[Rfam]
The family of this 228-nucleotide RNA from Candidatus Paraburkholderia kirkii is "Burkholderia sRNA Bp1_Cand871_SIPHT". The literature on the family includes a 2012 paper in BMC Genomics by Khoo et al., "Computational discovery and RT-PCR validation of novel Burkholderia conserved and Burkholderia pseudomallei unique sRNAs". Lineage of the source: Bacteria > Pseudomonadati > Burkholderiales > Paraburkholderia > Candidatus Paraburkholderia kirkii.
RNA sequence: CGCCCACAAUCUAUUUAAACGGUUUCGACACGGAUGUGUUGGGGCGCGCUGUGCGACAGCUGCGUGUUUCCGAUGGUCGGCUGGUCGACUUUGGUCGAAGCUCAAAUUGGGGCAUCCCUGUUGGGGUUGUUUCUUCGAGUGUACUCGCUCGGAAGCAUCCCACGUUUGGUCUCCUCGCGCUAACCCCCGUAGCGUGUGGUUUUUAGCGGGCUCAAGGCCCGCUUUUUU
Numbered sequence: 001c002g003c004c005c006a007c008a009a010u011c012u013a014u015u016u017a018a019a020c021g022g023u024u025u026c027g028a029c030a031c032g033g034a035u036g037u038g039u040u041g042g043g044g045c046g047c048g049c050u051g052u053g054c055g056a057c058a059g060c061u062g063c064g065u066g067u068u069u070c071c072g073a074u075g076g077u078c079g080g081c082u083g084g085u086c087g088a089c090u091u092u093g094g095u096c097g098a099a100g101c102u103c104a105a106a107u108u109g110g111g112g113c114a115u116c117c118c119u120g121u122u123g124g125g126g127u128u129g130u131u132u133c134u135u136c137g138a139g140u141g142u143a144c145u146c147g148c149u150c151g152g153a154a155g156c157a158u159c160c161c162a163c164g165u166u167u168g169g170u171c172u173c174c175u176c177g178c179g180c181u182a183a184c185c186c187c188c189g190u191a192g193c194g195u196g197u198g199g200u201u202u203u204u205a206g207c208g209g210g211c212u213c214a215a216g217g218c219c220c221g222c223u224u225u226u227u228u
Base pairs, nucleotide, nucleotide: 004169005168006167018131019130020129021128022127023126024125025124026123027122028121029120030119032117033116034115035114036113037112038082040080044071046069048067049066085098086097087096088095089094101111102110103109133152134151137148173199174198176196177195178194179193180192181191182190205223206222207221208220209219210218211217212216

The family's RNA type in Rfam is small RNA.
Gene Ontology term of the family: bacterial biofilm matrix.
The family's consensus secondary structure was predicted with CMfinder.